[Rfam]
RNA sequence: GCUCUGGUCGGAAACCAGAGCACGAUCACAAGGAG
Numbered sequence: 001g002c003u004c005u006g007g008u009c010g011g012a013a014a015c016c017a018g019a020g021c022a023c024g025a026u027c028a029c030a031a032g033g034a035g
Stems, first nucleotide, its partner, number of pairs: 001021008

Description:
L31-Coriobacteria ribosomal protein leader: a 35-nucleotide sequence from Coriobacterium glomerans. Rfam classes the family as a cis-regulatory leader. For this family Rfam cites "Discovery of 20 novel ribosomal leader candidates in bacteria and archaea" (Eckert and Weinberg, BMC Microbiol, 2020). Taxonomically the source falls in Coriobacterium glomerans (Bacteria, Bacillati, Actinomycetota, Coriobacteriales). The family's consensus secondary structure is taken from published work.